RNA sequence: CGGAAGUGCCUUUCGGAGUUGUGUCGAUAAGUGCGUAGAGAACACUCAUCAUCACAGCUCAGAGGGCACUUUCCUCGUUACGACACCCGAUGACCAGCUGAUUCAUCGGUGGAUCGAG
Dot-bracket structure: .((((((((((((..((.(((((..(((.(.((.........)).).)))..))))).)).)))))))))))).........................(((((((....)))))))..
Numbered sequence: 001c002g003g004a005a006g007u008g009c010c011u012u013u014c015g016g017a018g019u020u021g022u023g024u025c026g027a028u029a030a031g032u033g034c035g036u037a038g039a040g041a042a043c044a045c046u047c048a049u050c051a052u053c054a055c056a057g058c059u060c061a062g063a064g065g066g067c068a069c070u071u072u073c074c075u076c077g078u079u080a081c082g083a084c085a086c087c088c089g090a091u092g093a094c095c096a097g098c099u100g101a102u103u104c105a106u107c108g109g110u111g112g113a114u115c116g117a118g
Stems, first nucleotide, its partner, number of pairs: 002073012016060002019057005026050003030046001032044002099116007